[Rfam]
RNA: S10-Clostridia ribosomal protein leader
Organism: Capsicum annuum
RNA sequence: UGGUAGAACUAAUAUGGUGGUUGCUGCUCUUAGCAGGUUUUCCAUGGAGAGAUUAUCUUAUAUGGAUGAUAA
Numbered sequence: 001u002g003g004u005a006g007a008a009c010u011a012a013u014a015u016g017g018u019g020g021u022u023g024c025u026g027c028u029c030u031u032a033g034c035a036g037g038u039u040u041u042c043c044a045u046g047g048a049g050a051g052a053u054u055a056u057c058u059u060a061u062a063u064g065g066a067u068g069a070u071a072a
Stems, first nucleotide, its partner, number of pairs: 014045004019040002024036005054071004060067002